[Rfam]
RNA sequence: GCAGUGUUGCCACGCUGAAGCGCCCGGUUGGUAGGGAUCAGCGUGGUGAAGGUAGGCAAUCUCCGCCCUUGCCGGGGCGGGUUAUGCCGUUGAGCGUUCGGCGUCUGGGAGUUCGUAGCUCUCGGGCGCCGUCG
Numbered sequence: 001g002c003a004g005u006g007u008u009g010c011c012a013c014g015c016u017g018a019a020g021c022g023c024c025c026g027g028u029u030g031g032u033a034g035g036g037a038u039c040a041g042c043g044u045g046g047u048g049a050a051g052g053u054a055g056g057c058a059a060u061c062u063c064c065g066c067c068c069u070u071g072c073c074g075g076g077g078c079g080g081g082u083u084a085u086g087c088c089g090u091u092g093a094g095c096g097u098u099c100g101g102c103g104u105c106u107g108g109g110a111g112u113u114c115g116u117a118g119c120u121c122u123c124g125g126g127c128g129c130c131g132u133c134g
Stems, first nucleotide, its partner, number of pairs: 001095002007049001010046009023035002052090002055087001057086002062081008099131014
A member of the RNA family "Streptomyces RNA 6925" from Streptomyces zagrosensis, 134 nucleotides long. The pairing is the family consensus, mapped onto this sequence. Identified by deep sequencing of transcriptome at the end of exponential growth phase. Sequencing size consistent with northern blot size. Streptomyces specific. Small 12 nt possible coding region observed. NCBI's taxonomy places the organism under Bacteria, Actinomycetota, Actinomycetes, Streptomycetaceae, Streptomyces.